[Rfam]
RNA sequence: GGUUUCACCCGUAUCUUUUCAAGGUAUGAAAAAUGUUCUGAUCGGAAGCAAUUCCGUGUCAGAUUCAAGAAUUUUUGGUUCAGCAUUUUGGGGGUUUAUCCCAAAAUGC
Numbered sequence: 001g002g003u004u005u006c007a008c009c010c011g012u013a014u015c016u017u018u019u020c021a022a023g024g025u026a027u028g029a030a031a032a033a034u035g036u037u038c039u040g041a042u043c044g045g046a047a048g049c050a051a052u053u054c055c056g057u058g059u060c061a062g063a064u065u066c067a068a069g070a071a072u073u074u075u076u077g078g079u080u081c082a083g084c085a086u087u088u089u090g091g092g093g094g095u096u097u098a099u100c101c102c103a104a105a106a107u108g109c
Stems, first nucleotide, its partner, number of pairs: 007037001014029002017026001019024001039061004043056005085107009